This 222-nucleotide sequence from bacterium 1xD42-87 belongs to the Rfam family "Group II catalytic intron D1-D4-6". A search with the family's covariance model found it, with a score of 161 bits. From the family's description: Group II introns are found in rRNA, tRNA and mRNA of organelles in fungi, plants and protists, and also in mRNA in bacteria.
RNA sequence: CAAAUCCUGUCUGCGAAGGUCUGGCCAGCCAGCAGCAGCGAGUCUUGCGUGGCAGUCAGUAAUGGCUGGUGCGAAGCGUAGACAGCGAGCAAGUAGGGCUGCAAUGCGAUUGAGCCUCGAAAUGUUGAAGUUCAGAGGGCUGACGUCUUAACUGGUGCGGAAAGCAAUAUCGGGCAGUUCGUAUAAGGCGAGAACUGUCCGGCACUGCGGGGUCAAAGAGCC
Dot-bracket structure: ..........((((...(((.[.[[..))).))))..((..((((((((((.((((((....)))))).))))...)).)))).))........................((.((((((.............(((..((((..(((..........)))...)))....(((((((((((.......]].])))))))))))).)))))))))).)......